The family of this 113-nucleotide RNA from Celerinatantimonas diazotrophica is "Gammaprotebacteria rimP leader". NCBI's taxonomy places the organism under Bacteria, Pseudomonadati, Pseudomonadota, Celerinatantimonadaceae, Celerinatantimonas. The match comes from Rfam's covariance-model search (53 bits).
RNA sequence: AAGCUCGGGUAGGCACAAAGAGUUCGGUUUACUCUAAGCCCCGUAUUCGGGGCUUUUUGUUAUCUUCAUGAUGCACUUUGUGUCUUGUCUCUGGGCUUUUAGGCCCUUUUUUC
Numbered sequence: 001a002a003g004c005u006c007g008g009g010u011a012g013g014c015a016c017a018a019a020g021a022g023u024u025c026g027g028u029u030u031a032c033u034c035u036a037a038g039c040c041c042c043g044u045a046u047u048c049g050g051g052g053c054u055u056u057u058u059g060u061u062a063u064c065u066u067c068a069u070g071a072u073g074c075a076c077u078u079u080g081u082g083u084c085u086u087g088u089c090u091c092u093g094g095g096c097u098u099u100u101a102g103g104c105c106c107u108u109u110u111u112u113c
Stems, first nucleotide, its partner, number of pairs: 036055008093106004